The record is a 72-nucleotide RNA sequence from Aegilops tauschii, which matches "Small nucleolar RNA R66" in Rfam.
Gene Ontology terms of the family: RNA processing and nucleolus.
[Rfam]
RNA sequence: UCCUAGGAUGGCAUGAAAUCUUUGGGACCCGACUAUUCUUAUGAUGACAGCCAUAGGCAUGUCUCUGACGAC
Dot-bracket structure: ((.............................(.((....)))...........................)).

On this family, see Chen et al., Nucleic Acids Res 2003: "The high diversity of snoRNAs in plants: identification and comparative study of 120 snoRNA genes from Oryza sativa". Pairs were carried over by alignment from the consensus structure, which was predicted with PFOLD.